[Rfam]
RNA: Group I catalytic intron
Organism: Sporosarcina pasteurii
RNA sequence: CUUCUGCGAUAAUUUGAUUGCAUGGGCGUCUAUAUCAGUAAUGAUAUAGAUGAUUACUGGGUGGAUUGCUGGAACAUCCUGAGAGCUCUUCUACCACAGCGGAACUGGAAACGGUAAACGUGACGGUUUGAAAAACGAAGAGAUUGGACAAUCAGCAGCGAAGCCCCUGUCGGGAAACCGUGGGGAACGUUCAACGACUAGGGUAUACCGUCUAAGGUAAAUGCUAUGACGAUGAAAUCCGUAGGGUGUUACGAGUCGUAACAUUCGAAGUGCCCAGCAUCCUUAUAAUCGAUCAUUUUAAAGACAAUUGAACGUAAGGAUGAAGAUAUAGUCUAUUCUAUGCUCGAAAGACAUAG
Dot-bracket structure: (((.((((((......)))))).))).......(((......)))...........[[[[.[[...((((((....(((.(..............................................................).)))...))))))((....(((...............)))....))...(.(((((......................................................................]].]]]]..((((..((...........................))))))........)))))).....(((.((....)))))..